U12 minor spliceosomal RNA: a 149-nucleotide RNA sequence from Phrynocephalus forsythii. Gene Ontology terms of the family: mRNA branch site recognition, pre-mRNA branch point binding and U12 snRNP.
[Rfam]
RNA sequence: AUGCCUUAAACUUAUGAGUAAGGAAAAUAAUGAUCCGGGGUGACGCCCGGGUCCUCACUACUCAUGUGAGAAGAAUUUUUGAACGGGUACAGGUCGUCCCUGAGGUGACCCGCCUACUUCGCGGGAUGCCUGGGAGUUUGAUCUGCCCG
Numbered sequence: 001a002u003g004c005c006u007u008a009a010a011c012u013u014a015u016g017a018g019u020a021a022g023g024a025a026a027a028u029a030a031u032g033a034u035c036c037g038g039g040g041u042g043a044c045g046c047c048c049g050g051g052u053c054c055u056c057a058c059u060a061c062u063c064a065u066g067u068g069a070g071a072a073g074a075a076u077u078u079u080u081g082a083a084c085g086g087g088u089a090c091a092g093g094u095c096g097u098c099c100c101u102g103a104g105g106u107g108a109c110c111c112g113c114c115u116a117c118u119u120c121g122c123g124g125g126a127u128g129c130c131u132g133g134g135a136g137u138u139u140g141a142u143c144u145g146c147c148c149g
Base pairs, nucleotide, nucleotide: 004023005022006021007020008019032053033052034051035050036049037048038047039046054070055069056068057067058066084149085148086147087146088145091144092143093142094141095140096139100134101133103131104130105129106128107127109125110124111123112122113121
The pairing is the family consensus, mapped onto this sequence.